This 352-nucleotide RNA from Arsenicitalea aurantiaca belongs to the Rfam family "Alphaproteobacteria transfer-messenger RNA".
Pairs were carried over by alignment from the consensus structure, which is taken from published work.
Clan: tRNA clan.

RNA sequence: GCAAUUGCAUGGGCGCGAGGGCUUGCCUAUAUUGGGCGUGCCGGCAACGGCUAUGGCGAUAAAUGGCCAUCGCAAUAAACCCAUCGGACCCGGGGGCAGUACCCGGCGCCUCCACCACUCUCCCCGUUCCUGGACGGGCGCGCGGGGGCGAAACAGGAUCGACGAGGGCGUAAAGGGUGUGUUUUCGCUCGGCAUGGUACCGCCGAUAUCGGACCAUUUUUAUAGUUGCCAAUGACAACUAUGCUGAGGCCCGUCUGGCUGCGUAAGCGGUCCGACACCUCGAAUUGAAGCCCUUCUGCUGUAGCAGGUAGAAGGCGGGGUUCGCAGGCACCUGGCAACAGAAGCCUGCACU
Numbered sequence: 001g002c003a004a005u006u007g008c009a010u011g012g013g014c015g016c017g018a019g020g021g022c023u024u025g026c027c028u029a030u031a032u033u034g035g036g037c038g039u040g041c042c043g044g045c046a047a048c049g050g051c052u053a054u055g056g057c058g059a060u061a062a063a064u065g066g067c068c069a070u071c072g073c074a075a076u077a078a079a080c081c082c083a084u085c086g087g088a089c090c091c092g093g094g095g096g097c098a099g100u101a102c103c104c105g106g107c108g109c110c111u112c113c114a115c116c117a118c119u120c121u122c123c124c125c126g127u128u129c130c131u132g133g134a135c136g137g138g139c140g141c142g143c144g145g146g147g148g149c150g151a152a153a154c155a156g157g158a159u160c161g162a163c164g165a166g167g168g169c170g171u172a173a174a175g176g177g178u179g180u181g182u183u184u185u186c187g188c189u190c191g192g193c194a195u196g197g198u199a200c201c202g203c204c205g206a207u208a209u210c211g212g213a214c215c216a217u218u219u220u221u222a223u224a225g226u227u228g229c230c231a232a233u234g235a236c237a238a239c240u241a242u243g244c245u246g247a248g249g250c251c252c253g254u255c256u257g258g259c260u261g262c263g264u265a266a267g268c269g270g271u272c273c274g275a276c277a278c279c280u281c282g283a284a285u286u287g288a289a290g291c292c293c294u295u296c297u298g299c300u301g302u303a304g305c306a307g308g309u310a311g312a313a314g315g316c317g318g319g320g321u322u323c324g325c326a327g328g329c330a331c332c333u334g335g336c337a338a339c340a341g342a343a344g345c346c347u348g349c350a351c352u
Stems, first nucleotide, its partner, number of pairs: 040051004055189005065182001068179004080168003084165003090106005107150007190205004195216003200212002318333004324349006
Bacterial tmRNA, also known as 10Sa RNA or SsrA, is named for its dual tRNA and mRNA-like properties. Gene Ontology term of the family: RNA catabolic process.